The record is a 250-nucleotide RNA from Streptomyces yokosukanensis, which matches "Streptomyces sRNA 4677" in Rfam. About the family: Located in the intergenic region between anti-sigma factor SCO4677 gene and a putative regulatory protein gene SCO4676. scr4677 expression requires the SCO4677 activity and scr4677 sRNA itself seem to affect the levels of the SCO4676-associated transcripts. The pairing is the family consensus, mapped onto this sequence. Rfam classes the family as a small RNA.
RNA sequence: GGCUCCGGUGGCGCACGCGACUGAAAGCCAAGGACGGACCUGGGGAAAGAACCCCACCAAGCCCCACCCCUCCCGCCCGCGCCCCCAUGCUCACUCGGCCGGGUGAAUAUGCCCGAGGCAGCUGGAUUUCGCGGCCCCUGGCGGCUCUACGCUCAGCGCAACACGACACAACCGCAGACAUGCGACGGCCCUCGCCGGGACUGGCAUCCCAGUGCGAGGGCCUGACCACCGAGGAAGUAGGAGCUUCCCG
Numbered sequence: 001g002g003c004u005c006c007g008g009u010g011g012c013g014c015a016c017g018c019g020a021c022u023g024a025a026a027g028c029c030a031a032g033g034a035c036g037g038a039c040c041u042g043g044g045g046a047a048a049g050a051a052c053c054c055c056a057c058c059a060a061g062c063c064c065c066a067c068c069c070c071u072c073c074c075g076c077c078c079g080c081g082c083c084c085c086c087a088u089g090c091u092c093a094c095u096c097g098g099c100c101g102g103g104u105g106a107a108u109a110u111g112c113c114c115g116a117g118g119c120a121g122c123u124g125g126a127u128u129u130c131g132c133g134g135c136c137c138c139u140g141g142c143g144g145c146u147c148u149a150c151g152c153u154c155a156g157c158g159c160a161a162c163a164c165g166a167c168a169c170a171a172c173c174g175c176a177g178a179c180a181u182g183c184g185a186c187g188g189c190c191c192u193c194g195c196c197g198g199g200a201c202u203g204g205c206a207u208c209c210c211a212g213u214g215c216g217a218g219g220g221c222c223u224g225a226c227c228a229c230c231g232a233g234g235a236a237g238u239a240g241g242a243g244c245u246u247c248c249c250g
Stems, first nucleotide, its partner, number of pairs: 007230004017076003091106006121157005187222005193216003197210004233248005